[Rfam]
RNA sequence: UGACCAGUCAAAAUGGUUGUGAAAUGUUUUUAUUUCAUAUCACAGCCAUUUUUGACGAGUCAGG
Numbered sequence: 001u002g003a004c005c006a007g008u009c010a011a012a013a014u015g016g017u018u019g020u021g022a023a024a025u026g027u028u029u030u031u032a033u034u035u036c037a038u039a040u041c042a043c044a045g046c047c048a049u050u051u052u053u054g055a056c057g058a059g060u061c062a063g064g
Stems, first nucleotide, its partner, number of pairs: 007056007014048009025039003

The record is a 64-nucleotide RNA sequence from Nezara viridula, which matches "mir-2 microRNA precursor family" in Rfam. Lineage of the source: Eukaryota > Altocrustacea > Allotriocarida > Paraneoptera > Nezara. A reference for the family is Ambros (2001), "microRNAs: tiny regulators with great potential", Cell. Rfam links the family to the GO terms RISC complex and miRNA-mediated post-transcriptional gene silencing.